[Rfam]
RNA: Small nucleolar RNA snoR104
Organism: Colocasia esculenta
RNA sequence: GGGUGGCAUGCAACAGCAAGGAUGCUAACCUGAUACAAUCUUCCUACAAAGAAAAUAGUAUUUUCCUGCUUGUAGAACUUAAAGUGGGUUCUGCAAGUCUCAAAAUACAAGACAGCAGA
Numbered sequence: 001g002g003g004u005g006g007c008a009u010g011c012a013a014c015a016g017c018a019a020g021g022a023u024g025c026u027a028a029c030c031u032g033a034u035a036c037a038a039u040c041u042u043c044c045u046a047c048a049a050a051g052a053a054a055a056u057a058g059u060a061u062u063u064u065c066c067u068g069c070u071u072g073u074a075g076a077a078c079u080u081a082a083a084g085u086g087g088g089u090u091c092u093g094c095a096a097g098u099c100u101c102a103a104a105a106u107a108c109a110a111g112a113c114a115g116c117a118g119a
Stems, first nucleotide, its partner, number of pairs: 001031003006025004011020001059110001068098008077089003
Dot-bracket structure: (((..((((.(........).))))...)))...........................(........((((((((.(((.......))).))))))))...........).........